Shown here is a 100-nucleotide RNA from Peribacillus deserti, a member of the family "Purine riboswitch aptamer".
Riboswitches are metabolite binding domains within certain messenger RNAs that serve as precision sensors for their corresponding targets.

RNA sequence: AAAAUAAUUAUCAAAUUAUGUCGUAUAAUAUUGGGGAUUGGCCCAAAAGUUUCUACCGAGCUGCCGUAACAGCUCGACUACGGGAUAAACGAUGAAAGAG
Numbered sequence: 001a002a003a004a005u006a007a008u009u010a011u012c013a014a015a016u017u018a019u020g021u022c023g024u025a026u027a028a029u030a031u032u033g034g035g036g037a038u039u040g041g042c043c044c045a046a047a048a049g050u051u052u053c054u055a056c057c058g059a060g061c062u063g064c065c066g067u068a069a070c071a072g073c074u075c076g077a078c079u080a081c082g083g084g085a086u087a088a089a090c091g092a093u094g095a096a097a098g099a100g
Stems, first nucleotide, its partner, number of pairs: 018086002021083005029048001031046005057076007